[Rfam]
Description: Rfam assigns this 310-nucleotide RNA from Pedionomus torquatus to the family "Small Cajal body-specific RNA 7". On this family, see Darzacq et al., EMBO J 2002: "Cajal body-specific small nuclear RNAs: a novel class of 2'-O-methylation and pseudouridylation guide RNAs". Lineage of the source: Eukaryota > Euteleostomi > Neognathae > Charadriiformes > Pedionomus.

Nucleotides: 310
Base pairs, nucleotide, nucleotide: 001309002308003307004306176208177207178206179205180204181203183201186195188193
Number, partner (000 for none) and nucleotide at each position: 001309u002308g003307g004306a005000a006000g007000u008000g009000a010000u011000g012000a013000a014000a015000c016000a017000g018000a019000g020000a021000u022000a023000a024000u025000u026000g027000g028000a029000u030000g031000u032000g033000u034000c035000u036000u037000u038000g039000a040000a041000u042000g043000u044000g045000u046000g047000u048000g049000a050000u051000a052000a053000a054000u055000g056000g057000a058000a059000u060000u061000u062000a063000a064000a065000c066000c067000a068000a069000g070000u071000u072000g073000g074000g075000u076000g077000g078000g079000a080000u081000g082000u083000g084000g085000g086000c087000a088000g089000c090000g091000u092000g093000u094000g095000u096000g097000u098000g099000u100000g101000u102000g103000u104000g105000c106000g107000c108000a109000u110000g111000g112000a113000u114000a115000g116000a117000a118000g119000c120000g121000g122000c123000u124000u125000c126000a127000a128000a129000u130000g131000g132000g133000g134000g135000c136000a137000c138000u139000g140000a141000c142000a143000a144000u145000g146000c147000a148000g149000u150000g151000c152000u153000g154000a155000u156000u157000c158000c159000g160000g161000a162000g163000u164000g165000c166000a167000u168000c169000u170000g171000a172000g173000g174000c175000g176208u177207g178206u179205u180204g181203u182000u183201a184000a185000a186195u187000u188193c189000u190000g191000a192000g193188g194000u195186g196000c197000c198000a199000c200000a201183u202000u203181g204180c205179a206178a207177c208176a209000u210000u211000g212000c213000c214000g215000a216000u217000g218000a219000u220000u221000a222000a223000a224000g225000c226000c227000c228000a229000a230000a231000a232000g233000a234000a235000g236000c237000c238000c239000a240000c241000c242000a243000a244000g245000a246000g247000a248000a249000g250000c251000c252000u253000g254000g255000g256000c257000a258000u259000c260000c261000u262000a263000a264000a265000u266000c267000u268000c269000u270000a271000a272000c273000a274000g275000g276000u277000u278000c279000a280000u281000u282000a283000a284000u285000u286000g287000a288000a289000g290000u291000g292000a293000u294000c295000c296000u297000g298000u299000g300000a301000u302000c303000u304000g305000a306004u307003c308002u309001g310000a
Rfam classes the family as a small Cajal body RNA.
Pairs were carried over by alignment from the consensus structure.